[Rfam]
Nucleotides: 047
Stems, first nucleotide, its partner, number of pairs: 016044007025035004
Number, partner (000 for none) and nucleotide at each position: 001000g002000a003000u004000c005000c006000c007000g008000g009000a010000g011000g012000u013000c014000a015000a016044c017043a018042c019041c020040c021039g022038a023000c024000a025035g026034c027033g028032c029000g030000a031000u032028g033027c034026g035025c036000c037000c038022u039021c040020g041019g042018g043017u044016g045000g046000c047000g